Rfam assigns this 147-nucleotide RNA sequence from Laticauda laticaudata to the family "Small nucleolar RNA SNORA79". The literature on the family includes a 2006 paper in RNA by Schattner et al., "A computational screen for mammalian pseudouridylation guide H/ACA RNAs". Rfam classes the family as an H/ACA-box small nucleolar RNA. Rfam 15.1 lists 944 matches to the family in 375 species. ACA65 (SNORA79) is a member of the H/ACA class of snoRNAs that guide the sites of modification of uridines to pseudouridines. This snoRNA was identified by computational screening and its expression in mouse experimentally verified by Northern blot and primer extension analysis.
[Rfam]
RNA sequence: UGAUGACUGUUCCUCUCACUGCUACAAGCCUCAAACAGUGGGAUUUUAUGUCAUCAAAUACUAACAUGACCUUUCUUCACUCAAAAGUGUCUUUAGAUGGGUUGGCCAUCUGUGUGACACAGUUGAAUUUUGCAGGGUCGCACAUUC
Numbered sequence: 001u002g003a004u005g006a007c008u009g010u011u012c013c014u015c016u017c018a019c020u021g022c023u024a025c026a027a028g029c030c031u032c033a034a035a036c037a038g039u040g041g042g043a044u045u046u047u048a049u050g051u052c053a054u055c056a057a058a059u060a061c062u063a064a065c066a067u068g069a070c071c072u073u074u075c076u077u078c079a080c081u082c083a084a085a086a087g088u089g090u091c092u093u094u095a096g097a098u099g100g101g102u103u104g105g106c107c108a109u110c111u112g113u114g115u116g117a118c119a120c121a122g123u124u125g126a127a128u129u130u131u132g133c134a135g136g137g138u139c140g141c142a143c144a145u146u147c
Stems, first nucleotide, its partner, number of pairs: 001056007014043005020037002023034001068139006081126004087120005095111005